[Rfam]
RNA sequence: CGUGCAAGUUUGGGGCCACGGCAGAAGUGCUUAUGGUGCAACCUGUCAGAUUCCAAUGAAUCUGUGAAUUCUGUU
Numbered sequence: 001c002g003u004g005c006a007a008g009u010u011u012g013g014g015g016c017c018a019c020g021g022c023a024g025a026a027g028u029g030c031u032u033a034u035g036g037u038g039c040a041a042c043c044u045g046u047c048a049g050a051u052u053c054c055a056a057u058g059a060a061u062c063u064g065u066g067a068a069u070u071c072u073g074u075u
Base pairs, nucleotide, nucleotide: 013043015042020075021074022073023072024071025070026069027039028038029037047064048063049062050061051060052059053058
The family of this 75-nucleotide RNA from Crocodylus porosus is "Mammalian CPEB3 ribozyme". The source organism's lineage runs through Eukaryota, Opisthokonta, Craniata, Sauropsida and Crocodylus. It scores 43 bits against the family's covariance model.